[Rfam]
RNA sequence: UGGAAGAAUCUGUUAAGCUCAGGAGGGAUAGCGCCAUGAACAUAUAUACAUAUAUAUGCAAGGUGGCCUGUUAUCACGAUUUACUGAUGAUCAAUGGCGCUAUCUAUCCUGAGCCUCACGGGUUCUUCGU
Numbered sequence: 001u002g003g004a005a006g007a008a009u010c011u012g013u014u015a016a017g018c019u020c021a022g023g024a025g026g027g028a029u030a031g032c033g034c035c036a037u038g039a040a041c042a043u044a045u046a047u048a049c050a051u052a053u054a055u056a057u058g059c060a061a062g063g064u065g066g067c068c069u070g071u072u073a074u075c076a077c078g079a080u081u082u083a084c085u086g087a088u089g090a091u092c093a094a095u096g097g098c099g100c101u102a103u104c105u106a107u108c109c110u111g112a113g114c115c116u117c118a119c120g121g122g123u124u125c126u127u128c129g130u
Stems, first nucleotide, its partner, number of pairs: 010121001017114008026105012